[Rfam]
A member of the RNA family "Acido-Lenti-1 RNA" from Indibacter alkaliphilus, 48 nucleotides long. A search with the family's covariance model found it, with a score of 43 bits. By type it is a small RNA.

RNA sequence: CCCAGGGUUGAAACCCUGGGCUAUUACAUUAUUCGCCCUUACAGGGCU
Numbered sequence: 001c002c003c004a005g006g007g008u009u010g011a012a013a014c015c016c017u018g019g020g021c022u023a024u025u026a027c028a029u030u031a032u033u034c035g036c037c038c039u040u041a042c043a044g045g046g047c048u
Stems, first nucleotide, its partner, number of pairs: 001020008035047005
Dot-bracket structure: ((((((((....))))))))..............(((((...))))).